[Rfam]
Small nucleolar RNA SNORA42/SNORA80 family: a 137-nucleotide RNA from Pantherophis guttatus. Taxonomically the source falls in Pantherophis (Eukaryota, Sarcopterygii, Sauropsida, Squamata). The members of this family belong to the H/ACA class of snoRNAs that guide the sites of modification of uridines to pseudouridines. Human ACA42 (SNORA42) was cloned from HeLa cells by immunoprecipitation with anti-GAR1 antibody. Its is predicted to guide the pseudouridylation of residues U109 and U572 of 18S rRNA. ACA42 shares the same host gene with ACA26, ACA46, ACA50. The family's consensus secondary structure was predicted with RNAalifold. A search with the family's covariance model found it, with a score of 98 bits. Its family is annotated with nucleolus and RNA processing in the Gene Ontology.
RNA sequence: GCAUGGCUUUGGAUUUAUGGUAGGUCCCUUUCCAUGGACUUCCCAUAGUGGACUCCAUGCCAGAGAAACUUGUCUCCUUGAACCAUUGGCUGGUCUGAAUUACUGUAGUCCUAGCUUCUGAUGUGGGUGGUACAUUU
Dot-bracket structure: ((((((.(......((((((.(((((.........)).))).))))))...).)).))))............((.(((.....((...((.((.((..........)).))..))...))....))).)).......

The family has 21 seed sequences and 1,535 matches in Rfam 15.1.